[Rfam]
RNA sequence: GGCAGCCUCGUCAAAUUCAGUACUGCCCAUUCGGUGGCAAGUACUGGCCCAAAUGGCUGCGACAUCAAACCUGUGGGUCAUGGGCCUCGAUUUCCUCACCGUGGAGACCGGGGAUAAGUUGAUCCCACAGACAUAU
Numbered sequence: 001g002g003c004a005g006c007c008u009c010g011u012c013a014a015a016u017u018c019a020g021u022a023c024u025g026c027c028c029a030u031u032c033g034g035u036g037g038c039a040a041g042u043a044c045u046g047g048c049c050c051a052a053a054u055g056g057c058u059g060c061g062a063c064a065u066c067a068a069a070c071c072u073g074u075g076g077g078u079c080a081u082g083g084g085c086c087u088c089g090a091u092u093u094c095c096u097c098a099c100c101g102u103g104g105a106g107a108c109c110g111g112g113g114a115u116a117a118g119u120u121g122a123u124c125c126c127a128c129a130g131a132c133a134u135a136u
Base pairs, nucleotide, nucleotide: 002060003059004058005057018046019045020044021043022042023041024039025038026037027036073128074127075126076125077124078122085113086112087111088110089109
Shown here is a 136-nucleotide RNA from Leptobrachium leishanense, a member of the family "Small nucleolar RNA SNORA5". A search with the family's covariance model found it, with a score of 88 bits. Rfam 15.1 lists 2,226 matches to the family in 629 species. ACA5 is a member of the H/ACA class of snoRNA that guide the sites of modification of uridines to pseudouridines. The family's consensus secondary structure was predicted with RNAfold. Rfam classes the family as an H/ACA-box small nucleolar RNA.